[Rfam]
Background: The record is a 201-nucleotide RNA sequence from Burkholderia multivorans, which matches "Burkholderia sRNA 1" in Rfam. The base pairs follow the family's consensus structure, which was predicted with RNAfold. Lineage of the source: Bacteria > Pseudomonadota > Burkholderiales > Burkholderia > Burkholderia multivorans. By type it is a small RNA. The match comes from Rfam's covariance-model search (122 bits).
RNA sequence: GUAAGUUCUACGGGGUAGCAAAAAAAAGCGCGGGGUGAGCGCAGCCGGCACGUCGUCAGCGUGCCGGCCACGGCGUGGCUGCAUGCACGGCGGGGCCAUCAUCGUCGGAUAACAAAUGCAUGCGGACCGACUUGCGACAAGCAGCGUUCCGUCGUCCGACCGGGGAAUGCAGUAUCGGGCGGCGGCGGACGUUUUUUCAUC
Number, nucleotide and partner (000 for none) at each position: 001g196002u000003a194004a193005g192006u191007u000008c035009u034010a000011c032012g031013g000014g029015g000016u000017a000018g000019c000020a000021a000022a000023a000024a000025a000026a000027a000028g000029c014030g000031c012032g011033g000034g009035g008036u000037g000038a000039g000040c072041g071042c000043a000044g068045c067046c066047g065048g064049c063050a062051c061052g060053u059054c000055g000056u000057c000058a000059g053060c052061g051062u050063g049064c048065c047066g046067g045068c044069c000070a000071c041072g040073g000074c000075g000076u000077g127078g000079c125080u124081g123082c122083a121084u120085g119086c000087a000088c000089g000090g000091c000092g000093g105094g000095g103096c000097c000098a000099u000100c000101a000102u000103c095104g000105u093106c000107g000108g000109a000110u000111a000112a000113c000114a000115a000116a000117u000118g000119c085120a084121u083122g082123c081124g080125g079126a000127c077128c000129g000130a000131c000132u000133u146134g145135c144136g000137a000138c000139a000140a000141g000142c000143a000144g135145c134146g133147u000148u189149c188150c187151g186152u185153c184154g183155u000156c182157c181158g180159a000160c178161c177162g176163g000164g000165g000166a000167a000168u000169g000170c000171a000172g000173u000174a000175u000176c162177g161178g160179g000180c158181g157182g156183c154184g153185g152186c151187g150188g149189a148190c000191g006192u005193u004194u003195u000196u001197u000198c000199a000200u000201c000